A member of the RNA family "mir-9256 microRNA precursor family" from Cnephaeus nilssonii, 67 nucleotides long.
Rfam links the family to the GO terms miRNA-mediated post-transcriptional gene silencing and RISC complex.
The base pairs follow the family's consensus structure, which was predicted with RNAalifold.
The family has 8 seed sequences and 31,772 matches in Rfam 15.1.

RNA sequence: CAAUACCCUGAGUGGCCAGAUGAUGAUGAUCUCUGAACACAUAAUAAUCUGGCCACUCAGGGUAUAU
Numbered sequence: 001c002a003a004u005a006c007c008c009u010g011a012g013u014g015g016c017c018a019g020a021u022g023a024u025g026a027u028g029a030u031c032u033c034u035g036a037a038c039a040c041a042u043a044a045u046a047a048u049c050u051g052g053c054c055a056c057u058c059a060g061g062g063u064a065u066a067u
Base pairs, nucleotide, nucleotide: 004064005063006062007061008060009059010058011057012056013055014054015053016052017051019049020048021047023045024044026042027041028040